[Rfam]
RNA sequence: UUAGGUGAGGACUGUUUCAUUUCAACCAGAGCCACCAACUCUGAGUCCGAACAAAAAGCCCAAUUUAAUCGUUGGGCUUUUUUG
Numbered sequence: 001u002u003a004g005g006u007g008a009g010g011a012c013u014g015u016u017u018c019a020u021u022u023c024a025a026c027c028a029g030a031g032c033c034a035c036c037a038a039c040u041c042u043g044a045g046u047c048c049g050a051a052c053a054a055a056a057a058g059c060c061c062a063a064u065u066u067a068a069u070c071g072u073u074g075g076g077c078u079u080u081u082u083u084g
Stems, first nucleotide, its partner, number of pairs: 021050002025046002029041003054081011
Record summary
The family of this 84-nucleotide RNA sequence from Jejuibacter calystegiae is "ArsR-gov region gene B". On this family, see Weel-Sneve et al., PLoS Genet 2013: "Single transmembrane peptide DinQ modulates membrane-dependent activities". arsR-gov region gene B is transcribed opposite of dinQ (translates into a toxic single transmembrane peptide) with 30 complimentary nucleotides. AgrB appears to repress accumulation of dinQ by RNA interference and counteracts its toxicity. The family has 4 seed sequences and 51 matches in Rfam 15.1. Its family is annotated with antisense RNA metabolic process and gene silencing by RNA in the Gene Ontology.